A member of the RNA family "TPP riboswitch aptamer (THI element)" from Weissella oryzae, 102 nucleotides long.
[Rfam]
RNA sequence: AGAUGACACUAGGGGUGGUUACUUAAUAACCUGAGACAAAUUUUUGAACCCUUUGAACCUGAAUAAGUUAAGACUUACGUAGGAAAGUGGUUGAGAUAACUG
Number, nucleotide and partner (000 for none) at each position: 001a000002g000003a000004u000005g000006a000007c089008a088009c087010u086011a052012g051013g050014g049015g000016u046017g031018g030019u029020u028021a027022c000023u000024u000025a000026a000027u021028a020029a019030c018031c017032u000033g000034a000035g000036a000037c000038a045039a044040a000041u000042u000043u000044u039045u038046g016047a000048a000049c014050c013051c012052u011053u000054u000055g000056a000057a000058c083059c082060u081061g080062a000063a000064u077065a076066a075067g074068u000069u000070a000071a000072g000073a000074c067075u066076u065077a064078c000079g000080u061081a060082g059083g058084a000085a000086a010087g009088u008089g007090g000091u000092u000093g000094a000095g000096a000097u000098a000099a000100c000101u000102g000
NCBI's taxonomy places the organism under Bacteria, Bacillati, Bacilli, Lactobacillaceae, Weissella oryzae.